Source information: This 75-nucleotide RNA sequence from Seonamhaeicola maritimus belongs to the Rfam family "Flavo-1 RNA". The family's RNA type in Rfam is small RNA. The family's consensus secondary structure is taken from published work. The match comes from Rfam's covariance-model search (52 bits).
[Rfam]
RNA sequence: UGCUUGCGUUAGGGAUAGAAACGGCAUCCUUUUUUGAAGCAUGAAAAAAAGAUAUAGUGGAUAGCCCGACCAUAA
Dot-bracket structure: ...........(((.((...((...(((...((((.........))))..)))...))...)).)))........